[Rfam]
RNA sequence: GUUGGAUCGAUGAUGUUUUUAGAAGAAACUGCGUUAUCUAUCUGCAACUUCCUUAAUGGAAACUGAUGAUAAAUAUGAUCUUCCUGAGAUCCAAU
Numbered sequence: 001g002u003u004g005g006a007u008c009g010a011u012g013a014u015g016u017u018u019u020u021a022g023a024a025g026a027a028a029c030u031g032c033g034u035u036a037u038c039u040a041u042c043u044g045c046a047a048c049u050u051c052c053u054u055a056a057u058g059g060a061a062a063c064u065g066a067u068g069a070u071a072a073a074u075a076u077g078a079u080c081u082u083c084c085u086g087a088g089a090u091c092c093a094a095u
Base pairs, nucleotide, nucleotide: 001095002094003093004092005091006090007089
RNA: Small nucleolar RNA snoR27